Background:
This 86-nucleotide RNA sequence from Medicago truncatula belongs to the Rfam family "mir-160 microRNA precursor family". The organism belongs to Medicago, within Eukaryota. A reference for the family is Rhoades et al. (2002), "Prediction of plant microRNA targets", Cell. A search with the family's covariance model found it, with a score of 65 bits. Gene Ontology terms of the family: miRNA-mediated post-transcriptional gene silencing and RISC complex. The family has 7 seed sequences and 1,502 matches in Rfam 15.1.

RNA sequence: GUGUGCCUGGCUCCCUGUAUGCCAUUUGUAGAGUCCAUCACGACAGUGAUGAACUUAGUGAAUGGCGUACUCGGAGUCAUGCAUGC
Dot-bracket structure: ((((((.(((((((..((((((((..(((............................)))..))))))))..))))))).))))))